[Rfam]
RNA sequence: UAAGUACAUAGAAUGGCUUGCAAGGGCGGUCGGCUAAUCUCCCGGAAGGGAGGUGAUGCUGUGGAGGUAUACCAAGCACUGACGCUGAUGAUAUCAUUCGCGACGCUGGUUGUGCUGAUACUUUCCUUCGACAAGAAGAAAUAGACCGCCCUCGCCAGGAACCGGUCUAUUUCGGACUGCUAUUCCGAAGCCACCGCCCUUAAAAGCGGCUGUGUACCCAAGGCCGUGGAUGCUACCAACAUCUGCG
Number, nucleotide and partner (000 for none) at each position: 001u220002a000003a000004g217005u216006a000007c214008a213009u212010a000011g210012a000013a000014u193015g192016g191017c190018u189019u188020g000021c154022a000023a152024g151025g150026g149027c000028g146029g000030u144031c000032g000033g000034c000035u056036a000037a054038u000039c052040u051041c050042c049043c048044g000045g000046a000047a000048g043049g042050g041051a040052g039053g000054u037055g000056a035057u000058g000059c000060u000061g000062u000063g125064g124065a123066g122067g121068u120069a119070u000071a000072c000073c000074a000075a000076g000077c090078a089079c000080u000081g000082a000083c000084g000085c000086u000087g000088a000089u078090g077091a000092u000093a000094u000095c000096a000097u000098u000099c000100g000101c000102g115103a000104c000105g000106c000107u000108g000109g000110u000111u000112g000113u000114g000115c102116u000117g000118a000119u069120a068121c067122u066123u065124u064125c063126c000127u000128u000129c000130g000131a000132c000133a000134a000135g000136a000137a000138g000139a000140a000141a000142u000143a000144g030145a000146c028147c000148g000149c026150c025151c024152u023153c000154g021155c000156c000157a000158g000159g000160a000161a000162c000163c174164g173165g172166u000167c000168u000169a000170u000171u000172u165173c164174g163175g000176a000177c000178u000179g000180c000181u000182a000183u000184u000185c000186c000187g000188a019189a018190g017191c016192c015193a014194c209195c208196g207197c206198c000199c000200u000201u000202a000203a000204a000205a000206g197207c196208g195209g194210c011211u000212g009213u008214g007215u000216a005217c004218c000219c000220a001221a000222g000223g000224c000225c247226g246227u245228g244229g243230a242231u241232g240233c000234u238235a000236c000237c000238a234239a000240c232241a231242u230243c229244u228245g227246c226247g225
Annotation: This 247-nucleotide RNA sequence from Paenibacillus sambharensis belongs to the Rfam family "BsrG". The source organism's lineage runs through Bacteria, Bacillota, Bacilli, Paenibacillaceae and Paenibacillus. Rfam's curators write: bsrE, bsrG and bsrH pair through intermolecular interactions with antisense sRNAs. They form type I toxin/antitoxin system that includes an mRNA encoding for a short, toxic peptide (bsrE, bsrG and bsrH) and an antitoxin that is comprised of an antisense RNA. bsrG encodes a 39-amino-acid toxin, and the 180 nucleotide antisense sRNA called SR4 acts as the antitoxin (they overlap by 123 nucleotides). SR4 interaction with the 3'UTR of bsrG RNA promotes bsrG degradation and inhibits its translation. BsrG interferes with cell envelope biosynthesis, causes membrane invaginations and delocalisation of the cell wall synthesis and initiates autolysis. bsrE RNA encodes 30 amino-acid toxin peptide. Its antitoxin gene, SR5 overlaps by 112 nucleotides at the 3' end of bsrE. SR5 also overlaps bsrG from nucleotide 163 to 52 (Rfam overlap check). The antitoxin SR5 promotes bsrE degradation but unlike SR4 it does not directly inhibits toxin mRNA translation. Its family is annotated with toxin activity and autolysis in the Gene Ontology. Rfam classes the family as a small RNA.